[Rfam]
Nucleotides: 079
Base pairs, nucleotide, nucleotide: 004073005072006071007070008069009068010067014063015062016061017060018059020057021056023054024053025052026051027050029049030048031047032046033045034044
Number, partner (000 for none) and nucleotide at each position: 001000g002000c003000a004073g005072a006071a007070u008069u009068a010067u011000u012000u013000u014063u015062g016061c017060a018059a019000u020057g021056u022000u023054u024053u025052c026051c027050u028000g029049g030048a031047u032046a033045u034044g035000u036000a037000a038000u039000a040000u041000a042000c043000a044034u045033g046032u047031a048030u049029u050027g051026g052025g053024a054023a055000c056021a057020u058000u059018u060017u061016g062015c063014a064000u065000c066000c067010a068009u069008a070007g071006u072005u073004u074000u075000g076000u077000a078000u079000c